[Rfam]
A member of the RNA family "Streptococcus RNA 266" from Streptococcus mutans, 110 nucleotides long. NCBI's taxonomy places the organism under Bacteria, Bacilli, Lactobacillales, Streptococcus, Streptococcus mutans. The pairing is the family consensus, mapped onto this sequence. For this family Rfam cites "Identification of 88 regulatory small RNAs in the TIGR4 strain of the human pathogen Streptococcus pneumoniae" (Acebo et al., RNA, 2012).
RNA sequence: AAUGUAAGUUUGGUCGCUUUUCAUUAUAAAUCAUAUGGGACUUUUUUCAUACACUAAAAAAGCCCUAUAAUAUCCGAAAGGGAUUUACCCACUACAGAUAUUAUAGAGUC
Number, nucleotide and partner (000 for none) at each position: 001a025002a024003u023004g022005u000006a020007a000008g017009u016010u000011u000012g000013g000014u000015c000016g009017c008018u000019u000020u006021u000022c004023a003024u002025u001026a000027u000028a043029a042030a000031u040032c039033a000034u000035a000036u000037g000038g000039g032040a031041c000042u029043u028044u000045u000046u000047u000048c000049a000050u000051a000052c000053a000054c000055u000056a000057a000058a000059a000060a000061a000062g109063c108064c000065c106066u000067a104068u103069a102070a101071u100072a099073u098074c097075c000076g000077a000078a093079a000080g000081g090082g089083a000084u000085u000086u000087a000088c000089c082090c081091a000092c000093u078094a000095c000096a000097g074098a073099u072100a071101u070102u069103a068104u067105a000106g065107a000108g063109u062110c000